The record is a 405-nucleotide RNA sequence from Pyricularia oryzae, which matches "Nuclear RNase P" in Rfam. The organism belongs to Pyricularia oryzae, within Eukaryota. Rfam's curators write: Ribonuclease P (RNase P) is a ubiquitous endoribonuclease, found in archaea, bacteria and eukarya as well as chloroplasts and mitochondria. Its best characterised activity is the generation of mature 5'-ends of tRNAs by cleaving the 5'-leader elements of precursor-tRNAs.

RNA sequence: UCCUCUUCAACGCUGCGUUUCCAUGUCGAACCUACGGAGAGUCUGUCUCACGAUGGACUCUCAUCACCGUACAUGUGAGAAAUUCGGAGUAAUCUUCAUCCAUCAGGGGAAGCCGCGGUCGUUUUUCUGCAAAGAAAAAAAGGACGGGUGAUACCUAACUUCUUCAAGCCCGUGACGGCCUGGCGUGACUUCACGUCUGCAAUUGGCAUCAGAAAAGCAGGGACGGUAGGCGGCUUUCUAAGCUCGUCAAGCCGAUCACCUCUGGGAGAGCCGUUGCGAAGAUUUGUGUCGGGAGACACUGGAGUGCGAUACGCGGCGUUACCACGGGACUCGUGUCCCUCUUCCCUUCGGGGCUGAGGUGGCCUUGUCCGAGUAACAAUUCAAUUCCGAUUACUCUGCUGAGGA
Numbered sequence: 001u002c003c004u005c006u007u008c009a010a011c012g013c014u015g016c017g018u019u020u021c022c023a024u025g026u027c028g029a030a031c032c033u034a035c036g037g038a039g040a041g042u043c044u045g046u047c048u049c050a051c052g053a054u055g056g057a058c059u060c061u062c063a064u065c066a067c068c069g070u071a072c073a074u075g076u077g078a079g080a081a082a083u084u085c086g087g088a089g090u091a092a093u094c095u096u097c098a099u100c101c102a103u104c105a106g107g108g109g110a111a112g113c114c115g116c117g118g119u120c121g122u123u124u125u126u127c128u129g130c131a132a133a134g135a136a137a138a139a140a141a142g143g144a145c146g147g148g149u150g151a152u153a154c155c156u157a158a159c160u161u162c163u164u165c166a167a168g169c170c171c172g173u174g175a176c177g178g179c180c181u182g183g184c185g186u187g188a189c190u191u192c193a194c195g196u197c198u199g200c201a202a203u204u205g206g207c208a209u210c211a212g213a214a215a216a217g218c219a220g221g222g223a224c225g226g227u228a229g230g231c232g233g234c235u236u237u238c239u240a241a242g243c244u245c246g247u248c249a250a251g252c253c254g255a256u257c258a259c260c261u262c263u264g265g266g267a268g269a270g271c272c273g274u275u276g277c278g279a280a281g282a283u284u285u286g287u288g289u290c291g292g293g294a295g296a297c298a299c300u301g302g303a304g305u306g307c308g309a310u311a312c313g314c315g316g317c318g319u320u321a322c323c324a325c326g327g328g329a330c331u332c333g334u335g336u337c338c339c340u341c342u343u344c345c346c347u348u349c350g351g352g353g354c355u356g357a358g359g360u361g362g363c364c365u366u367g368u369c370c371g372a373g374u375a376a377c378a379a380u381u382c383a384a385u386u387c388c389g390a391u392u393a394c395u396c397u398g399c400u401g402a403g404g405a
Stems, first nucleotide, its partner, number of pairs: 001405004008398002012317007022075004037062011085389005094281004167181002170178002182197006199277004205272003220261003318377005